This 235-nucleotide part of an RNA from Betaproteobacteria bacterium UKL13-2 belongs to the Rfam family "Bacterial large subunit ribosomal RNA".
A search with the family's covariance model found it, with a score of 2751 bits.

[Rfam]
RNA sequence: AGUCGGAGCCCUGCUUAAUUGGUCUUUACCCCGAAGUUCUUUGUUGUCCGAGCGCGCAUCGCAAGAUGCGGGCGAGACGCAACAAAAGAUAUUUGAGGGGAGUGAAGAGCGAGAGCUUUUAGUUGAUUGAACAGAGAGAUAGGCGUACUGGACACGAGAGUGGACAGAGCCGUCACCCUGCUCAAUUGGCUGAAGGCCAAUUGAGCAGGGUGACGGCGUACCUUUUGUAUAAUGG
Numbered sequence: 001a002g003u004c005g006g007a008g009c010c011c012u013g014c015u016u017a018a019u020u021g022g023u024c025u026u027u028a029c030c031c032c033g034a035a036g037u038u039c040u041u042u043g044u045u046g047u048c049c050g051a052g053c054g055c056g057c058a059u060c061g062c063a064a065g066a067u068g069c070g071g072g073c074g075a076g077a078c079g080c081a082a083c084a085a086a087a088g089a090u091a092u093u094u095g096a097g098g099g100g101a102g103u104g105a106a107g108a109g110c111g112a113g114a115g116c117u118u119u120u121a122g123u124u125g126a127u128u129g130a131a132c133a134g135a136g137a138g139a140u141a142g143g144c145g146u147a148c149u150g151g152a153c154a155c156g157a158g159a160g161u162g163g164a165c166a167g168a169g170c171c172g173u174c175a176c177c178c179u180g181c182u183c184a185a186u187u188g189g190c191u192g193a194a195g196g197c198c199a200a201u202u203g204a205g206c207a208g209g210g211u212g213a214c215g216g217c218g219u220a221c222c223u224u225u226u227g228u229a230u231a232a233u234g235g
Base pairs, nucleotide, nucleotide: 002217003216004215005214008211009210010209011208012207013206014205015204016203017202018201019200020199021198022197023196024195025194026193027192028191221234223232
Clan: LSU clan. Taxonomically the source falls in Betaproteobacteria (Bacteria, Pseudomonadati, Pseudomonadota).